[Rfam]
RNA sequence: AUUUUCCCGCAAUAAGGAUUGUAGAGGUUAGCUUUUGUAAAACUUCCAUAAAAGGUUUUACAAAACUAGUAACGGAAAGCCUGGUUGUUU
Numbered sequence: 001a002u003u004u005u006c007c008c009g010c011a012a013u014a015a016g017g018a019u020u021g022u023a024g025a026g027g028u029u030a031g032c033u034u035u036u037g038u039a040a041a042a043c044u045u046c047c048a049u050a051a052a053a054g055g056u057u058u059u060a061c062a063a064a065a066c067u068a069g070u071a072a073c074g075g076a077a078a079g080c081c082u083g084g085u086u087g088u089u090u
Base pairs, nucleotide, nucleotide: 015082016081017080019078020077024073029068030067031066035063036062037061038060039059040058041057042056043055044054045053

A member of the RNA family "Flavo-1 RNA" from Lacinutrix sp. WUR7, 90 nucleotides long.
The family's RNA type in Rfam is small RNA.